[Rfam]
RNA: c-di-GMP-I-GGC riboswitch aptamer
RNA sequence: ACCGAUAAAGGCAAACUUAUCGAAAGGUAAGGACGCAAAGCCACGGACCUUAAUGUAUAUUUACAAAGGUAGCCGGGCCACCGAAG
Numbered sequence: 001a002c003c004g005a006u007a008a009a010g011g012c013a014a015a016c017u018u019a020u021c022g023a024a025a026g027g028u029a030a031g032g033a034c035g036c037a038a039a040g041c042c043a044c045g046g047a048c049c050u051u052a053a054u055g056u057a058u059a060u061u062u063a064c065a066a067a068g069g070u071a072g073c074c075g076g077g078c079c080a081c082c083g084a085a086g
Stems, first nucleotide, its partner, number of pairs: 003083002011036002016031006034072001040078003044075003047070005